A member of the RNA family "Ruegeria cis8 sRNA" from Pontivivens ytuae, 128 nucleotides long. The source organism's lineage runs through Bacteria, Pseudomonadota, Alphaproteobacteria, Rhodobacterales and Pontivivens. For this family Rfam cites "Experimental Identification of Small Non-Coding RNAs in the Model Marine Bacterium Ruegeria pomeroyi DSS-3" (Rivers et al., Front Microbiol, 2016). Pairs were carried over by alignment from the consensus structure, which was predicted with RNAfold.
RNA sequence: ACCGCGAGGAUUUUCGCAAUGUAGGGGAUCAGCGGCAGGUUCAGGACAAGGAGCACCAGAUUGCCCAGAUACAUCGAGAUGAUGACCGACCAGAAGAUCUGCGGCUCGUCGAUCAUCAACCGCGGCCC
Number, nucleotide and partner (000 for none) at each position: 001a000002c000003c000004g017005c016006g015007a014008g013009g000010a000011u000012u000013u008014u007015c006016g005017c004018a000019a000020u000021g000022u000023a000024g000025g000026g128027g127028a000029u125030c124031a000032g000033c122034g121035g120036c000037a000038g114039g113040u112041u000042c000043a109044g000045g107046a106047c000048a000049a000050g102051g000052a100053g099054c000055a000056c000057c096058a000059g000060a000061u093062u092063g091064c000065c000066c088067a000068g086069a000070u000071a000072c084073a083074u082075c081076g000077a000078g000079a000080u000081g075082a074083u073084g072085a000086c068087c000088g066089a000090c000091c063092a062093g061094a000095a000096g057097a000098u000099c053100u052101g000102c050103g000104g000105c000106u046107c045108g000109u043110c000111g000112a040113u039114c038115a000116u000117c000118a000119a000120c035121c034122g033123c000124g030125g029126c000127c027128c026